Shown here is a 118-nucleotide sequence from Paraburkholderia sp. LEh10, a member of the family "Group II catalytic intron D1-D4-4". NCBI's taxonomy places the organism under Bacteria, Pseudomonadati, Betaproteobacteria, Burkholderiaceae, Paraburkholderia. The match comes from Rfam's covariance-model search (57 bits). The base pairs follow the family's consensus structure.

[Rfam]
RNA sequence: AGGAUGGGGAAAGUCUUUCUAAUUCGGAGCAGUCGUGGAGGUAACGAAGCGGUUGAAGCCUUCGGUGAAGCGUGUCACGAAAUACGGUGACAGCGCGAGUGUGCAGGCCGUAACGCGA
Numbered sequence: 001a002g003g004a005u006g007g008g009g010a011a012a013g014u015c016u017u018u019c020u021a022a023u024u025c026g027g028a029g030c031a032g033u034c035g036u037g038g039a040g041g042u043a044a045c046g047a048a049g050c051g052g053u054u055g056a057a058g059c060c061u062u063c064g065g066u067g068a069a070g071c072g073u074g075u076c077a078c079g080a081a082a083u084a085c086g087g088u089g090a091c092a093g094c095g096c097g098a099g100u101g102u103g104c105a106g107g108c109c110g111u112a113a114c115g116c117g118a
Stems, first nucleotide, its partner, number of pairs: 001016002025064005030055006040045001073092006095111003